[Rfam]
RNA sequence: GACAUGAGCGGUGGUGCACACCUGUAGUCCCAGCUACUCGGGAGUCUGAGCCCGCCCAGGAGUUCUGGGCUGCAGUGCGCUAUGCUGAGCGGGUGUCCACGCUAAGGCCGCCAUCAAUAUGGUUAGCCCCGGAGAGCCAGGGCACACUAGGUUGACUAAGGAGGGGUGAACCGGCCCAGGUCGGAGACAGAGAAGGUCAAAGCUACCGUGGCGAUCAGUAGCGGGAUCACGCCUGUGAAUAGCCACUGCAGCAUAGCCUGGGCAACACAGAGAGACAGGGGCUCCU
Numbered sequence: 001g002a003c004a005u006g007a008g009c010g011g012u013g014g015u016g017c018a019c020a021c022c023u024g025u026a027g028u029c030c031c032a033g034c035u036a037c038u039c040g041g042g043a044g045u046c047u048g049a050g051c052c053c054g055c056c057c058a059g060g061a062g063u064u065c066u067g068g069g070c071u072g073c074a075g076u077g078c079g080c081u082a083u084g085c086u087g088a089g090c091g092g093g094u095g096u097c098c099a100c101g102c103u104a105a106g107g108c109c110g111c112c113a114u115c116a117a118u119a120u121g122g123u124u125a126g127c128c129c130c131g132g133a134g135a136g137c138c139a140g141g142g143c144a145c146a147c148u149a150g151g152u153u154g155a156c157u158a159a160g161g162a163g164g165g166g167u168g169a170a171c172c173g174g175c176c177c178a179g180g181u182c183g184g185a186g187a188c189a190g191a192g193a194a195g196g197u198c199a200a201a202g203c204u205a206c207c208g209u210g211g212c213g214a215u216c217a218g219u220a221g222c223g224g225g226a227u228c229a230c231g232c233c234u235g236u237g238a239a240u241a242g243c244c245a246c247u248g249c250a251g252c253a254u255a256g257c258c259u260g261g262g263c264a265a266c267a268c269a270g271a272g273a274g275a276c277a278g279g280g281g282c283u284c285c286u
Stems, first nucleotide, its partner, number of pairs: 001046003004023001006021001008019001010017001028043003048284006054263007065256003069252009079243005085237001089236008097225002100223005106216002109213006115154004120149004126143004131138002156160001163206001165204003173198004181190001183188001
Annotation:
Shown here is a 286-nucleotide sequence from Leptosomus discolor, a member of the family "Metazoan signal recognition particle RNA". Its Rfam clan is "SRP clan". The source organism's lineage runs through Eukaryota, Sauria, Saurischia, Neoaves and Leptosomus. The family's RNA type in Rfam is non-coding RNA gene.